[Rfam]
The family of this 65-nucleotide RNA from Medicago truncatula is "MIR2629 microRNA precursor family". Rfam links the family to the GO terms miRNA-mediated post-transcriptional gene silencing and RISC complex. A search with the family's covariance model found it, with a score of 66 bits.
RNA sequence: AAAGUUUUCUUCGGUAGUUAACUGCAGCCGGUUCUAUAAUUCGGCAGUUAACUGCCGAUGGGCAU
Numbered sequence: 001a002a003a004g005u006u007u008u009c010u011u012c013g014g015u016a017g018u019u020a021a022c023u024g025c026a027g028c029c030g031g032u033u034c035u036a037u038a039a040u041u042c043g044g045c046a047g048u049u050a051a052c053u054g055c056c057g058a059u060g061g062g063c064a065u
Stems, first nucleotide, its partner, number of pairs: 008061002011058015